[Rfam]
RNA sequence: AUAGAGCAACAGCUUCUAUGCAGCUUUUAGUUGGCCCCGAUUAAUCUUCUGCUUCCGCCAAGAAUGGAAAGAUUAUCGGGGUUUCGUUUU
Number, nucleotide and partner (000 for none) at each position: 001a019002u018003a017004g016005a015006g000007c000008a000009a000010c000011a000012g000013c000014u000015u005016c004017u003018a002019u001020g000021c000022a000023g000024c000025u000026u000027u000028u000029a089030g088031u000032u000033g083034g082035c081036c080037c079038c078039g077040a076041u000042u075043a074044a073045u072046c071047u070048u069049c000050u000051g000052c000053u000054u000055c000056c000057g000058c000059c000060a000061a000062g000063a000064a000065u000066g000067g000068a000069a048070a047071g046072a045073u044074u043075a042076u040077c039078g038079g037080g036081g035082u034083u033084u000085c000086g000087u000088u030089u029090u000
RNA: CopA-like RNA
Organism: Izhakiella capsodis